[Rfam]
RNA: mir-103/107 microRNA precursor family
Organism: Labrus bergylta
RNA sequence: CGGUGCUGUCAGCCUCUUUACAGUGCUGCCUUGUCUAAUCAUGUUCAAGCAGCAUUGUACAGGGCUAUGACGACACAG
Numbered sequence: 001c002g003g004u005g006c007u008g009u010c011a012g013c014c015u016c017u018u019u020a021c022a023g024u025g026c027u028g029c030c031u032u033g034u035c036u037a038a039u040c041a042u043g044u045u046c047a048a049g050c051a052g053c054a055u056u057g058u059a060c061a062g063g064g065c066u067a068u069g070a071c072g073a074c075a076c077a078g
Base pairs, nucleotide, nucleotide: 014064015063016062017061019059020058021057022056023055024054025053026052027051028050030049031048032047033046